[Rfam]
RNA sequence: AAAAUGAAUAUUGUUUAUUGAUAACUCUGUGAAGACUACAUUCGAUGUGUAGGCAGAGAAACACCGAAAAGUGCUCGGGGCAAACGAAACAAUGAUAGUUGUGGAUAGCUGACCGCUGUUUGAUUGUGAAUGAAAAACAGAAUCCUUGUCAGGAGAAAGUAAAGGUGUUGUGCUAAAGUUAUCGCAGUUAAAGGUAUCCGUGGAGUUGCAGGAAUAAUAGAAGACAAGCGUUAAAAGCGUAGUCUGAAUCCAAGUUAGGGUUUAGCUGGUGACUGGUAUCAAACCUUGGAAAUACCACCAAUCCUGUUUGCGGUGAUGACAAAGAAAUUUGUCUAUAAGACUCUACAGAAUCCAAGUAGCGGAAAUCGCAAUGACACACAUUUUUUGAUGAUAUUUAGAAAAAUAUAAUGAAAAAAUUCUGAAUAUCCCGUGAAAGGUAAAGGUAACCAUUCCUUUAAUAGCAUUGUGCGAAUGUAUGCUGUUCUUAAGUGGGAUAGUGUACUAUGCUUGGGCAAGAAGUUAUAAGAGGACGCUUUUAUAGCUCAGACUUGUCUACUAUGUGACUGAAAAUAACUGAAGAUAAUGGCAGUAAGGCGAAGGUCUAUCAAUAAAAAGUAUUCAUU
Dot-bracket structure: .......(...(.(((..(.....(((((......(((((.......))))).))))).((((((..........((((((.(.(.(..((((....))))).).).)))..)))((((((..((.......))))))))..(((......))).........))))))..........(......(.(...((..((.((((((((((((((..............((((.....))))........((((((....(((.(((.[[[[..)))..)))....))))))...]]]]....))))))[[[[[.....(((((......))))).....)))))))).))...(.....((((.(..]]]]]..............................................[[[[....).))))....)...((((.........)))).((((...............................(...........).)...((..((..(.(((.((((....)))).)))..)]]]].))..))..))).....).....).).).......)........((((....))))....)..))).)...)....
Numbered sequence: 001a002a003a004a005u006g007a008a009u010a011u012u013g014u015u016u017a018u019u020g021a022u023a024a025c026u027c028u029g030u031g032a033a034g035a036c037u038a039c040a041u042u043c044g045a046u047g048u049g050u051a052g053g054c055a056g057a058g059a060a061a062c063a064c065c066g067a068a069a070a071g072u073g074c075u076c077g078g079g080g081c082a083a084a085c086g087a088a089a090c091a092a093u094g095a096u097a098g099u100u101g102u103g104g105a106u107a108g109c110u111g112a113c114c115g116c117u118g119u120u121u122g123a124u125u126g127u128g129a130a131u132g133a134a135a136a137a138c139a140g141a142a143u144c145c146u147u148g149u150c151a152g153g154a155g156a157a158a159g160u161a162a163a164g165g166u167g168u169u170g171u172g173c174u175a176a177a178g179u180u181a182u183c184g185c186a187g188u189u190a191a192a193g194g195u196a197u198c199c200g201u202g203g204a205g206u207u208g209c210a211g212g213a214a215u216a217a218u219a220g221a222a223g224a225c226a227a228g229c230g231u232u233a234a235a236a237g238c239g240u241a242g243u244c245u246g247a248a249u250c251c252a253a254g255u256u257a258g259g260g261u262u263u264a265g266c267u268g269g270u271g272a273c274u275g276g277u278a279u280c281a282a283a284c285c286u287u288g289g290a291a292a293u294a295c296c297a298c299c300a301a302u303c304c305u306g307u308u309u310g311c312g313g314u315g316a317u318g319a320c321a322a323a324g325a326a327a328u329u330u331g332u333c334u335a336u337a338a339g340a341c342u343c344u345a346c347a348g349a350a351u352c353c354a355a356g357u358a359g360c361g362g363a364a365a366u367c368g369c370a371a372u373g374a375c376a377c378a379c380a381u382u383u384u385u386u387g388a389u390g391a392u393a394u395u396u397a398g399a400a401a402a403a404u405a406u407a408a409u410g411a412a413a414a415a416a417u418u419c420u421g422a423a424u425a426u427c428c429c430g431u432g433a434a435a436g437g438u439a440a441a442g443g444u445a446a447c448c449a450u451u452c453c454u455u456u457a458a459u460a461g462c463a464u465u466g467u468g469c470g471a472a473u474g475u476a477u478g479c480u481g482u483u484c485u486u487a488a489g490u491g492g493g494a495u496a497g498u499g500u501a502c503u504a505u506g507c508u509u510g511g512g513c514a515a516g517a518a519g520u521u522a523u524a525a526g527a528g529g530a531c532g533c534u535u536u537u538a539u540a541g542c543u544c545a546g547a548c549u550u551g552u553c554u555a556c557u558a559u560g561u562g563a564c565u566g567a568a569a570a571u572a573a574c575u576g577a578a579g580a581u582a583a584u585g586g587c588a589g590u591a592a593g594g595c596g597a598a599g600g601u602c603u604a605u606c607a608a609u610a611a612a613a614a615g616u617a618u619u620c621a622u623u
Stems, first nucleotide, its partner, number of pairs: 008619001012615001014613003019608001025058005036052005060169006076115003079110003083106001085104001087102001090101004116140006124134002143154003180583001187575001189573001193571001194565001197349002200346008208307006228240004249290006259280003263275003267297004308371005318333005353436001359431004364426001418547004440456004458559003461507001493505001511554002515550002519543001521540003525536004592603004